[Rfam]
RNA: MAT2A 3'UTR stem loop D
Organism: Salvia splendens
RNA sequence: UCUGAGGUAUGGCAUCCCGAGAGCCAUCAUCUCAGA
Numbered sequence: 001u002c003u004g005a006g007g008u009a010u011g012g013c014a015u016c017c018c019g020a021g022a023g024c025c026a027u028c029a030u031c032u033c034a035g036a
Base pairs, nucleotide, nucleotide: 001036002035003034004033005032006031007030008029009027010026011025012024013023